RNA sequence: GUGAACUCUUAACUCGAUAGGUAGAAUGAUAGGGUAACGCCUUGAAAUGCCUACUCUAAUACUCCGACAUGCGUUAUUCGAAUGUGUAUAAGAAUAGGGUGUGAAGCUCGGUGAAGUCGGCUGAAAGUUGUCGUAGUACUUAUGAGUAACCGAAAGCUAACCAGAGGUGGUUGGUACAACUGAUAGGUCGGGAGUCGUGAAA
Numbered sequence: 001g002u003g004a005a006c007u008c009u010u011a012a013c014u015c016g017a018u019a020g021g022u023a024g025a026a027u028g029a030u031a032g033g034g035u036a037a038c039g040c041c042u043u044g045a046a047a048u049g050c051c052u053a054c055u056c057u058a059a060u061a062c063u064c065c066g067a068c069a070u071g072c073g074u075u076a077u078u079c080g081a082a083u084g085u086g087u088a089u090a091a092g093a094a095u096a097g098g099g100u101g102u103g104a105a106g107c108u109c110g111g112u113g114a115a116g117u118c119g120g121c122u123g124a125a126a127g128u129u130g131u132c133g134u135a136g137u138a139c140u141u142a143u144g145a146g147u148a149a150c151c152g153a154a155a156g157c158u159a160a161c162c163a164g165a166g167g168u169g170g171u172u173g174g175u176a177c178a179a180c181u182g183a184u185a186g187g188u189c190g191g192g193a194g195u196c197g198u199g200a201a202a
Stems, first nucleotide, its partner, number of pairs: 018053006031043004054194004064111004068103005074097006118190005126181006132152002138147002156175008

The family of this 202-nucleotide RNA sequence from Bacillus cereus is "Group II catalytic intron D1-D4-5".
Rfam describes the family as follows. Group II introns are found in rRNA, tRNA and mRNA of organelles in fungi, plants and protists, and also in mRNA in bacteria.
It is one of the family's seed sequences.
The family has 139 seed sequences and 720 matches in Rfam 15.1.